The family of this 88-nucleotide RNA from Naumannella halotolerans is "Actino-pnp RNA". The family's consensus secondary structure is taken from published work. Rfam classes the family as a cis-regulatory element.
RNA sequence: UCCAGUCCUCGGUAGUGGUCUUCGGGACCCCGUACCACCGGUAUCGCCGGGGUACGGCAGGGCCCGCGGACCUCGAUCGAAGACCGGC
Dot-bracket structure: .((.(((.(((((...(((((.((((.(((.............................))))))).)))))...))))).))).)).
A search with the family's covariance model found it, with a score of 54 bits. Lineage of the source: Bacteria > Bacillati > Actinomycetota > Propionibacteriales > Naumannella.